[Rfam]
RNA sequence: GUUGGAUUCGGAGACAUGGUUCCCAAAACCUACCUGGGAAUGCUCGUUGGAUCCCUGUGUGCCCUGAUGGGUGUGCUCACAAUUGCUCUGCCGGUUCCUGUAAUUGUUUCCAAU
Numbered sequence: 001g002u003u004g005g006a007u008u009c010g011g012a013g014a015c016a017u018g019g020u021u022c023c024c025a026a027a028a029c030c031u032a033c034c035u036g037g038g039a040a041u042g043c044u045c046g047u048u049g050g051a052u053c054c055c056u057g058u059g060u061g062c063c064c065u066g067a068u069g070g071g072u073g074u075g076c077u078c079a080c081a082a083u084u085g086c087u088c089u090g091c092c093g094g095u096u097c098c099u100g101u102a103a104u105u106g107u108u109u110c111c112a113a114u
Stems, first nucleotide, its partner, number of pairs: 001114002004111002009106003014101003018097002021094001037077002040074001049063002

A member of the RNA family "Potassium channel RNA editing signal" from Caenorhabditis japonica, 114 nucleotides long. Its family is annotated with adenosine to inosine editing in the Gene Ontology. Rfam classes the family as a cis-regulatory element. Taxonomically the source falls in Caenorhabditis (Eukaryota, Rhabditida, Rhabditina, Rhabditidae). From the family's description: This family represents a group of sequences related to the human potassium channel Kv1.1 hairpin element which directs the efficient modification of an adenosine to inosine by an adenosine deaminase acting on RNA (ADAR). The ADAR modification causes an isoleucine/valine recoding event which lies in the ion-conducting pore of the potassium channel. It is thought that this editing event targets the process of fast inactivation and allows a more rapid recovery from inactivation at negative potentials.